Overview
The record is a 237-nucleotide RNA from Streptomyces benahoarensis, which matches "Streptomyces sRNA 4677" in Rfam. A search with the family's covariance model found it, with a score of 88 bits. The pairing is the family consensus, mapped onto this sequence.
RNA sequence: GACGGCGGCGCGGCGGGCGGUCAAAAGAUCAAAGAACCCUGGGAAAGAACCCUCCAAACCAACCAAACCCCGUGUACGUCACUCAUGGGGGUGAACGGGAUCAACUCGGCUGGCGCGAGGGAGGGUUGGGCGGGCAGUCUCGCCCAUGCCAACAACCGUAGAUAUGCGUUGGCCCCCGCCGGGACUGCCAUCCCAGGGCGAGGGCCUGACCAUCAGAGGAAGAAAGCCGUCUUCCCC
Numbered sequence: 001g002a003c004g005g006c007g008g009c010g011c012g013g014c015g016g017g018c019g020g021u022c023a024a025a026a027g028a029u030c031a032a033a034g035a036a037c038c039c040u041g042g043g044a045a046a047g048a049a050c051c052c053u054c055c056a057a058a059c060c061a062a063c064c065a066a067a068c069c070c071c072g073u074g075u076a077c078g079u080c081a082c083u084c085a086u087g088g089g090g091g092u093g094a095a096c097g098g099g100a101u102c103a104a105c106u107c108g109g110c111u112g113g114c115g116c117g118a119g120g121g122a123g124g125g126u127u128g129g130g131c132g133g134g135c136a137g138u139c140u141c142g143c144c145c146a147u148g149c150c151a152a153c154a155a156c157c158g159u160a161g162a163u164a165u166g167c168g169u170u171g172g173c174c175c176c177c178g179c180c181g182g183g184a185c186u187g188c189c190a191u192c193c194c195a196g197g198g199c200g201a202g203g204g205c206c207u208g209a210c211c212a213u214c215a216g217a218g219g220a221a222g223a224a225a226g227c228c229g230u231c232u233u234c235c236c237c
Base pairs, nucleotide, nucleotide: 007214008213010211016070079094080093081092082091083090084089109143110142112141113140171206172205173204174203175202177200178199179198181194182193183192184191218235219234220233221232222231